Background
PyrR binding site: a 126-nucleotide RNA from Bacillus cereus. The match comes from Rfam's covariance-model search (55 bits). Rfam 15.1 lists 1,498 matches to the family in 930 species. This family represents the PyrR binding site and terminator structure. A reference for the family is Bonner et al. (2001), "Molecular recognition of pyr mRNA by the Bacillus subtilis attenuation regulatory protein PyrR", Nucleic Acids Res. The organism belongs to Bacillus cereus, within Bacteria.
[Rfam]
RNA sequence: CAGUCCUUUAACCCAACCCCGUGAGGUUGAGAAGGAAGUCGGAAUACAAUAUACGUAUGUUCUUUUCUUGGGGAUACGUAUGCUUUUUUGGCCUUCUCAUCAUAUCAGGUGAGAAGGCCUUUUGUU
Dot-bracket structure: ...((((((....(((((......))))).)))))).............(((((((((.(((.......))).))))))))).......((((((((((((......)))))))))))).......
Numbered sequence: 001c002a003g004u005c006c007u008u009u010a011a012c013c014c015a016a017c018c019c020c021g022u023g024a025g026g027u028u029g030a031g032a033a034g035g036a037a038g039u040c041g042g043a044a045u046a047c048a049a050u051a052u053a054c055g056u057a058u059g060u061u062c063u064u065u066u067c068u069u070g071g072g073g074a075u076a077c078g079u080a081u082g083c084u085u086u087u088u089u090g091g092c093c094u095u096c097u098c099a100u101c102a103u104a105u106c107a108g109g110u111g112a113g114a115a116g117g118c119c120u121u122u123u124g125u126u
Stems, first nucleotide, its partner, number of pairs: 004036006014029005050082009060072003090119012